[Rfam]
The record is a 56-nucleotide RNA sequence from Mycobacterium sp. UM_NYF, which matches "L31-Actinobacteria ribosomal protein leader" in Rfam. It is annotated as a cis-regulatory leader. The literature on the family includes a 2020 paper in BMC Microbiol by Eckert and Weinberg, "Discovery of 20 novel ribosomal leader candidates in bacteria and archaea".
RNA sequence: UCGGUUCCGGUUCACGUCCGUACAUCCCCAGGUCAGGGGCGGGCGACCCGGCGACC
Number, nucleotide and partner (000 for none) at each position: 001u000002c000003g056004g055005u054006u000007c051008c050009g049010g048011u000012u000013c000014a000015c045016g044017u043018c042019c041020g040021u000022a000023c000024a000025u000026c000027c000028c000029c000030a000031g000032g000033u000034c000035a000036g000037g000038g000039g000040c020041g019042g018043g017044c016045g015046a000047c000048c010049c009050g008051g007052c000053g000054a005055c004056c003